[Rfam]
RNA sequence: UCGCAGUCCGCCAAUCGGUCAAGCCGUGUCGCGGAAGGUUUCUCAACCAGCCAAUGUCCCGGCAGACCCGGGAGUGAGGUGAGCG
Numbered sequence: 001u002c003g004c005a006g007u008c009c010g011c012c013a014a015u016c017g018g019u020c021a022a023g024c025c026g027u028g029u030c031g032c033g034g035a036a037g038g039u040u041u042c043u044c045a046a047c048c049a050g051c052c053a054a055u056g057u058c059c060c061g062g063c064a065g066a067c068c069c070g071g072g073a074g075u076g077a078g079g080u081g082a083g084c085g
Stems, first nucleotide, its partner, number of pairs: 002085003007035005016026004037048004050080003057073006